[Rfam]
RNA sequence: GCAUCUGAAUCUUUCCCACUCCUUGCGGUGUGGUGCUGGACUGGGGACAUGUGAUGCAACAGGAAAGCAGAGGAAAUCCAGACAGGCUCCCUUUCCCCACAGUGGGACUUGUCUCUACGCCUUUGCGACAUCU
Numbered sequence: 001g002c003a004u005c006u007g008a009a010u011c012u013u014u015c016c017c018a019c020u021c022c023u024u025g026c027g028g029u030g031u032g033g034u035g036c037u038g039g040a041c042u043g044g045g046g047a048c049a050u051g052u053g054a055u056g057c058a059a060c061a062g063g064a065a066a067g068c069a070g071a072g073g074a075a076a077u078c079c080a081g082a083c084a085g086g087c088u089c090c091c092u093u094u095c096c097c098c099a100c101a102g103u104g105g106g107a108c109u110u111g112u113c114u115c116u117a118c119g120c121c122u123u124u125g126c127g128a129c130a131u132c133u
Stems, first nucleotide, its partner, number of pairs: 001057005013047006021039002067126006080114007094105002
Dot-bracket structure: (((((.......((((((..((...............))..)))))).....))))).........((((((.......(((((((.......((........))..)))))))......)))))).......

Notes:
Rfam assigns this 133-nucleotide sequence from Dromaius novaehollandiae to the family "Small nucleolar RNA SNORA55". Gene Ontology terms of the family: RNA processing and nucleolus. From the family's description: ACA55 is a member of the H/ACA class of snoRNA that guide the sites of modification of uridines to pseudouridines. It is annotated as an H/ACA-box small nucleolar RNA.